RNA sequence: UUAACGGCUCUUUUGAGAGCCACCAAAUAAUCAAAAAAAGCAUGAUU
Numbered sequence: 001u002u003a004a005c006g007g008c009u010c011u012u013u014u015g016a017g018a019g020c021c022a023c024c025a026a027a028u029a030a031u032c033a034a035a036a037a038a039a040g041c042a043u044g045a046u047u
Base pairs, nucleotide, nucleotide: 006021007020008019009018010017011016
Description:
Shown here is a 47-nucleotide RNA sequence from Labeo rohita, a member of the family "Histone 3' UTR stem-loop". NCBI's taxonomy places the organism under Eukaryota, Eumetazoa, Craniata, Osteoglossocephalai, Labeo. It scores 35 bits against the family's covariance model. By type it is a cis-regulatory element. The family's consensus secondary structure is taken from published work.